mir-8517 microRNA precursor family: a 108-nucleotide RNA sequence from Plutella xylostella.
The match comes from Rfam's covariance-model search (87 bits).
Its family is annotated with RISC complex and miRNA-mediated post-transcriptional gene silencing in the Gene Ontology.
RNA sequence: UUAAUGGAUGCUUCAGCCAUUGAACUGUUUUGUCACUCUCUGACAGAGAACAAUUUGUUCUCUGAGUGGCAAUGACAAAACAGUUCAAUAGCAAAAGCGUCCAGUAAC
Dot-bracket structure: (((.((....(((..((.((((((((((((..(((.............((((...))))...)))..))..........)))))))))).))..)))....)).))).